[Rfam]
The family of this 310-nucleotide sequence from Mycolicibacterium holsaticum is "Mycobacterium smegmatis small RNA 1". It scores 278 bits against the family's covariance model. The literature on the family includes a 2014 paper in Nucleic Acids Res by Hnilicova et al., "Ms1, a novel sRNA interacting with the RNA polymerase core in mycobacteria". Mycobacterium smegmatis small RNA 1 is highly expressed during stationary phase of growth. Ms1 RNA directly interacts with RNA polymerase (RNAP), but in a different way than 6S, which is present in other bacteria. Ms1 does not require the presence of the main sigma factor for RNAP interaction. There is evidence that Ms1 RNA may function similar to 6S RNA in M. smegmatis which does not have 6S RNA. Its family is annotated with RNA polymerase binding in the Gene Ontology.
RNA sequence: ACGGAAGCUUGGGGAGGCCAAGGCCGAGCCGGAAGAGAAGGCUCGGACUCCCGAACCAAGCUCCUAGCGCGGAUCCCGGCACCCACGCGGAGCACACGCCGCGAAAUAGGCAGAAGUGUUGCGGGCCUGCGUAUUUGCGAAGAGCGGACGGCGGGAAUUUCCCUGACGACCCUUUGGGUGGGGUUGCAGCCGCAGCGCAUCGACAAAACGCCGAGGCCACCCACGCAGCCGACUGAGCACGCUUGGUAACCGGUGUCCGUGCUAGCGGGCGGCGAGCCGAAUCACUUCGGAGCGCCGCCCGCUUCAUUUU
Dot-bracket structure: ..((.(((((((...((...((..((((((.........))))))..)).))...)))))))))(((((((((..((((...(((.(((..((....(((........)))......(((((((((((((((..(..(((...(((..((((..............(((((((......)))))))..))))...))).)))..)..))))..))))).....)))))).......)).))).)))...))))..)))))))))((((((((((..(((........)))..))))))))))........